[Rfam]
RNA: freshwater-2 RNA
RNA sequence: AUUCACAUAGGGUGAAUUUUAUGCGGAAGUUCAACCGCGUAGUGGGUUAGAACCCACAUUUUCAAGGAGAAAACAAAAUG
Numbered sequence: 001a002u003u004c005a006c007a008u009a010g011g012g013u014g015a016a017u018u019u020u021a022u023g024c025g026g027a028a029g030u031u032c033a034a035c036c037g038c039g040u041a042g043u044g045g046g047u048u049a050g051a052a053c054c055c056a057c058a059u060u061u062u063c064a065a066g067g068a069g070a071a072a073a074c075a076a077a078a079u080g
Base pairs, nucleotide, nucleotide: 001017002016003015004014005013006012020041021040022039023038024037025036026035042057043056044055045054